RNA sequence: AACAUUCUAAUAGCAUUCGCUCAUAUAAUCGCGGGGAUAUGGCCUGCAAGUUUCUACCGAUUUGCCGUAAACAAAUCGACUAUGGGAAGCAACGGAUUGAAA
Numbered sequence: 001a002a003c004a005u006u007c008u009a010a011u012a013g014c015a016u017u018c019g020c021u022c023a024u025a026u027a028a029u030c031g032c033g034g035g036g037a038u039a040u041g042g043c044c045u046g047c048a049a050g051u052u053u054c055u056a057c058c059g060a061u062u063u064g065c066c067g068u069a070a071a072c073a074a075a076u077c078g079a080c081u082a083u084g085g086g087a088a089g090c091a092a093c094g095g096a097u098u099g100a101a102a
Base pairs, nucleotide, nucleotide: 020086021085022084023083024082025081029049031047032046033045034044035043058078059077060076061075062074063073064072

A member of the RNA family "Purine riboswitch aptamer" from Sporosarcina sp. JAI121, 102 nucleotides long. The match comes from Rfam's covariance-model search (80 bits). Its Rfam clan is "Purine riboswitches". From the family's description: Riboswitches are metabolite binding domains within certain messenger RNAs that serve as precision sensors for their corresponding targets. Allosteric rearrangement of mRNA structure is mediated by ligand binding, and this results in modulation of gene expression. A class of riboswitches that selectively recognises guanine and becomes saturated at concentrations as low as 5 nM. In Bacillus subtilis, this mRNA motif is located on at least five separate transcriptional units that together encode 17 genes that are mostly involved in purine transport and purine nucleotide biosynthesis. It has also been shown that some members of this family are specific for adenine instead. Hence this family are termed purine riboswitches.